Source information: Transposase-2 RNA: a 71-nucleotide RNA sequence. The family's consensus secondary structure is taken from published work.

[Rfam]
RNA sequence: GAAACGCGAACCAAGCAGCCACCCACCAGUGGCAUGAGACUUGGAGCUGGUCUUGGCAACGAGACCAUGCG
Numbered sequence: 001g002a003a004a005c006g007c008g009a010a011c012c013a014a015g016c017a018g019c020c021a022c023c024c025a026c027c028a029g030u031g032g033c034a035u036g037a038g039a040c041u042u043g044g045a046g047c048u049g050g051u052c053u054u055g056g057c058a059a060c061g062a063g064a065c066c067a068u069g070c071g
Stems, first nucleotide, its partner, number of pairs: 011044005018033005048067008